About this RNA
Rfam assigns this 202-nucleotide part of an RNA from Drechslerella stenobrocha to the family "Eukaryotic large subunit ribosomal RNA". The base pairs follow the family's consensus structure, which is taken from published work. The match comes from Rfam's covariance-model search (3294 bits).
RNA sequence: AAGUCGGCAAAAUAGAUCCGUAACUUCGGGAAAAGGAUUGGCUCUAAGGGUUGGGCAUGUUGGGCCUUGAGUGGAUCCCGAGGGACCCGCUUGGUUCUAGCUUCACGGCCGGGACCUCGCGGGACUGCUUGGAGGAUGCUCUUGGCAGGCUUCGGCCGUCCGGCAUGCGCUUAACAACCGACUUAGAACUGGUACGGACAAG
Number, nucleotide and partner (000 for none) at each position: 001a000002a000003g000004u000005c000006g000007g000008c000009a000010a000011a000012a000013u000014a000015g039016a038017u037018c036019c035020g000021u000022a000023a000024c029025u000026u000027c000028g000029g024030g000031a000032a000033a000034a000035g019036g018037a017038u016039u015040g190041g189042c000043u187044c186045u185046a184047a183048g182049g179050g178051u177052u176053g175054g000055g168056c167057a166058u165059g164060u163061u162062g161063g160064g146065c145066c144067u000068u000069g141070a140071g139072u000073g000074g000075a000076u000077c000078c132079c131080g130081a000082g000083g000084g125085a000086c123087c122088c121089g120090c119091u000092u000093g116094g115095u114096u113097c112098u111099a000100g109101c108102u107103u000104c000105a000106c000107g102108g101109c100110c000111g098112g097113g096114a095115c094116c093117u000118c000119g090120c089121g088122g087123g086124a000125c084126u000127g000128c000129u000130u080131g079132g078133a000134g000135g000136a000137u000138g000139c071140u070141c069142u000143u000144g066145g065146c064147a000148g000149g000150c000151u000152u000153c000154g000155g000156c000157c000158g000159u000160c063161c062162g061163g060164c059165a058166u057167g056168c055169g000170c000171u000172u000173a000174a000175c053176a052177a051178c050179c049180g000181a000182c048183u047184u046185a045186g044187a043188a000189c041190u040191g195192g000193u000194a000195c191196g000197g000198a000199c000200a000201a000202g000
Its family is annotated with structural constituent of ribosome and ribosome in the Gene Ontology.